[Rfam]
RNA sequence: UGACUUUGGUCAAAGUCAAACUCUUUUAAGUUUGACCAAGUUUAUAGAAAAAUGUAGUAAUAUUUUCAACAUAAGGAAAAUAUGCUAUAAAAAUAUAUUCAGUUUCGGAUUUAAUGAAACUAAUUUGUUGUUGUAAAUAUUGAUAUAUUUUUUUAUAAAUUUGGUCAAACUUAGAGUAGUGUGACUUCGACCAAAGUCAU
Numbered sequence: 001u002g003a004c005u006u007u008g009g010u011c012a013a014a015g016u017c018a019a020a021c022u023c024u025u026u027u028a029a030g031u032u033u034g035a036c037c038a039a040g041u042u043u044a045u046a047g048a049a050a051a052a053u054g055u056a057g058u059a060a061u062a063u064u065u066u067c068a069a070c071a072u073a074a075g076g077a078a079a080a081u082a083u084g085c086u087a088u089a090a091a092a093a094u095a096u097a098u099u100c101a102g103u104u105u106c107g108g109a110u111u112u113a114a115u116g117a118a119a120c121u122a123a124u125u126u127g128u129u130g131u132u133g134u135a136a137a138u139a140u141u142g143a144u145a146u147a148u149u150u151u152u153u154u155a156u157a158a159a160u161u162u163g164g165u166c167a168a169a170c171u172u173a174g175a176g177u178a179g180u181g182u183g184a185c186u187u188c189g190a191c192c193a194a195a196g197u198c199a200u
Stems, first nucleotide, its partner, number of pairs: 005195005011189001013187006020180003024176003031169005045155008055145002059141007067133002071128005
The record is a 200-nucleotide sequence from Oryza meyeriana, which matches "MIR1435 microRNA precursor family" in Rfam.